The family of this 120-nucleotide RNA from Vitis vinifera is "Small nucleolar RNA snoR77". Rfam's curators put it in the seed alignment. It is annotated as an H/ACA-box small nucleolar RNA. The literature on the family includes a 2002 paper in Curr Biol by Marker et al., "Experimental RNomics: identification of 140 candidates for small non-messenger RNAs in the plant Arabidopsis thaliana". Pairs were carried over by alignment from the consensus structure, which was predicted with WAR. Lineage of the source: Eukaryota > Streptophytina > Pentapetalae > rosids > Vitis.
RNA sequence: AGGCAGCCCCCUUAGCCCUAGCCAUGGCAAGGGAGGUGUUAUUCUUCUCAGAUAUCGAUCUUUUGCUCUUCAGACCUGCCGAACCAUUCUUGAAGCUGGUCUAGUAAGCAUAAGUACAUU
Numbered sequence: 001a002g003g004c005a006g007c008c009c010c011c012u013u014a015g016c017c018c019u020a021g022c023c024a025u026g027g028c029a030a031g032g033g034a035g036g037u038g039u040u041a042u043u044c045u046u047c048u049c050a051g052a053u054a055u056c057g058a059u060c061u062u063u064u065g066c067u068c069u070u071c072a073g074a075c076c077u078g079c080c081g082a083a084c085c086a087u088u089c090u091u092g093a094a095g096c097u098g099g100u101c102u103a104g105u106a107a108g109c110a111u112a113a114g115u116a117c118a119u120u
Stems, first nucleotide, its partner, number of pairs: 002040004007036002009033005015028003060114003065109003072102005078096002083088001